[Rfam]
RNA sequence: UGCCGCUGCCCUCCUUGGGCGUUUCCUCCCUAGACUUGGGCCGCGCACGCAAGUGUGCGGCCUUUUUUCUUGUCUGC
Numbered sequence: 001u002g003c004c005g006c007u008g009c010c011c012u013c014c015u016u017g018g019g020c021g022u023u024u025c026c027u028c029c030c031u032a033g034a035c036u037u038g039g040g041c042c043g044c045g046c047a048c049g050c051a052a053g054u055g056u057g058c059g060g061c062c063u064u065u066u067u068u069c070u071u072g073u074c075u076g077c
Base pairs, nucleotide, nucleotide: 008020009019010018011017039062040061041060042059043058044057045056046055047054

The family of this 77-nucleotide RNA sequence from Chelatococcus composti is "Makes More Granules Regulator RNA (mmgR)". The base pairs follow the family's consensus structure. The family is grouped with related families in Rfam's "suhB sRNA clan". Rfam classes the family as a small RNA. Taxonomically the source falls in Chelatococcus (Bacteria, Pseudomonadati, Alphaproteobacteria, Hyphomicrobiales).